[Rfam]
RNA sequence: CUCUUAUUCAGAAUGGUGGAGUCAUAAGGGACUGUGAAGCCAUGGCAACCCCGUCGCUAUUUGUACGGAAGGUGCCUUCCUGAGCGAUCUGCACGGCAAGUGCAUGUCGAACAAUGAGAG
Numbered sequence: 001c002u003c004u005u006a007u008u009c010a011g012a013a014u015g016g017u018g019g020a021g022u023c024a025u026a027a028g029g030g031a032c033u034g035u036g037a038a039g040c041c042a043u044g045g046c047a048a049c050c051c052c053g054u055c056g057c058u059a060u061u062u063g064u065a066c067g068g069a070a071g072g073u074g075c076c077u078u079c080c081u082g083a084g085c086g087a088u089c090u091g092c093a094c095g096g097c098a099a100g101u102g103c104a105u106g107u108c109g110a111a112c113a114a115u116g117a118g119a120g
Stems, first nucleotide, its partner, number of pairs: 001120008013043005021032003029081001044076004049072002051068004085109004090104005
This 120-nucleotide sequence from Coprococcus sp. CAG:782 belongs to the Rfam family "SAM riboswitch aptamer (S box leader)". Rfam 15.1 lists 9,625 matches to the family in 4,158 species. Rfam's curators write: The SAM riboswitch is found upstream of a number of genes which code for proteins involved in methionine or cysteine biosynthesis in Gram-positive bacteria. Lineage of the source: Bacteria > Bacillati > Clostridia > Lachnospirales > Coprococcus.